[Rfam]
RNA sequence: AAAACAAGUGCUGCGAUAAGUAGCCGACAUAUUUUGCUUUCCGAGUAGUGCCUCAUUGAGGCACUUUUUUUUAUUCU
Numbered sequence: 001a002a003a004a005c006a007a008g009u010g011c012u013g014c015g016a017u018a019a020g021u022a023g024c025c026g027a028c029a030u031a032u033u034u035u036g037c038u039u040u041c042c043g044a045g046u047a048g049u050g051c052c053u054c055a056u057u058g059a060g061g062c063a064c065u066u067u068u069u070u071u072u073a074u075u076c077u
Base pairs, nucleotide, nucleotide: 001071002070003069004068006066007065008064022038023037024036026034027032049063050062051061052060053059054058